[Rfam]
RNA: Guanidine-I riboswitch aptamer
Organism: Microcoleus sp. FACHB-1515
RNA sequence: AACUUUAGCUUCUAGGGUUCCGGAUCUGGCGAUCGACUGGUCCAAGAGAAGCGAAGCUGGUGACAAGCCAGCUACACGGCGGGACAAAAGCCCGGGAGAU
Numbered sequence: 001a002a003c004u005u006u007a008g009c010u011u012c013u014a015g016g017g018u019u020c021c022g023g024a025u026c027u028g029g030c031g032a033u034c035g036a037c038u039g040g041u042c043c044a045a046g047a048g049a050a051g052c053g054a055a056g057c058u059g060g061u062g063a064c065a066a067g068c069c070a071g072c073u074a075c076a077c078g079g080c081g082g083g084a085c086a087a088a089a090g091c092c093c094g095g096g097a098g099a100u
Base pairs, nucleotide, nucleotide: 008052009051010050011049012048015043016042020040021039022037023034024033025032026031055073056072057071058070059069060068061067075095077098081093082092083091